[Rfam]
RNA sequence: CCGCCCCAUUUUUUGACCCCCUAUAUAAUUCCGGGAAUAUGGCCCGGAAGUCUCUACCGGGUGGCCGUAAACCACCGAAGGCUAUAGGGGAAAAGUUCCUUUCC
Numbered sequence: 001c002c003g004c005c006c007c008a009u010u011u012u013u014u015g016a017c018c019c020c021c022u023a024u025a026u027a028a029u030u031c032c033g034g035g036a037a038u039a040u041g042g043c044c045c046g047g048a049a050g051u052c053u054c055u056a057c058c059g060g061g062u063g064g065c066c067g068u069a070a071a072c073c074a075c076c077g078a079a080g081g082c083u084a085u086a087g088g089g090g091a092a093a094a095g096u097u098c099c100u101u102u103c104c
Base pairs, nucleotide, nucleotide: 018090019089020088021087022086023085024084025083029049030048031047032046033045034044035043058080060076061075062074063073064072